RNA sequence: CAGAUUGUGUCUUUGGUUAUCUAGCUGUAUGAGUUUUAAUUUCAUAAAGCUAGAGAACCGAAAGUACGAGCUG
Numbered sequence: 001c002a003g004a005u006u007g008u009g010u011c012u013u014u015g016g017u018u019a020u021c022u023a024g025c026u027g028u029a030u031g032a033g034u035u036u037u038a039a040u041u042u043c044a045u046a047a048a049g050c051u052a053g054a055g056a057a058c059c060g061a062a063a064g065u066a067c068g069a070g071c072u073g
Base pairs, nucleotide, nucleotide: 001073002072003071005069007067008066009065010064012062013061014060015059016058017057018056020054021053022052023051024050025049026048028046029045030044031043032042033041

mir-9/mir-79 microRNA precursor family: a 73-nucleotide RNA sequence from Cyprinodon variegatus. A reference for the family is Sempere et al. (2003), "Temporal regulation of microRNA expression in Drosophila melanogaster mediated by hormonal signals and broad-Complex gene activity", Dev Biol. Its family is annotated with miRNA-mediated post-transcriptional gene silencing and RISC complex in the Gene Ontology. The family has 214 seed sequences and 5,647 matches in Rfam 15.1. The source organism's lineage runs through Eukaryota, Teleostei, Osteoglossocephalai, Cyprinodontini and Cyprinodon. Pairs were carried over by alignment from the consensus structure, which was predicted with RNAalifold.